This 119-nucleotide RNA sequence from Pelotomaculum propionicicum belongs to the Rfam family "Molybdenum/Tungsten riboswitch aptamer (Moco RNA motif)".
A search with the family's covariance model found it, with a score of 64 bits.
Rfam 15.1 lists 1,248 matches to the family in 836 species.
[Rfam]
RNA sequence: ACAAACAAAAUGCUCCGAGCCAACCUAUCUAAACCUGCCUGGUAUGAUAGCUGGCCGACAGGGUGUAGUCAGAAACGGCUAUGCCUCCCCCUCAGGAAAGGAGCUUAGUUCUUUGAAGG
Numbered sequence: 001a002c003a004a005a006c007a008a009a010a011u012g013c014u015c016c017g018a019g020c021c022a023a024c025c026u027a028u029c030u031a032a033a034c035c036u037g038c039c040u041g042g043u044a045u046g047a048u049a050g051c052u053g054g055c056c057g058a059c060a061g062g063g064u065g066u067a068g069u070c071a072g073a074a075a076c077g078g079c080u081a082u083g084c085c086u087c088c089c090c091c092u093c094a095g096g097a098a099a100g101g102a103g104c105u106u107a108g109u110u111c112u113u114u115g116a117a118g119g
Stems, first nucleotide, its partner, number of pairs: 003113002012104005019055004025050005033043003061086010087096002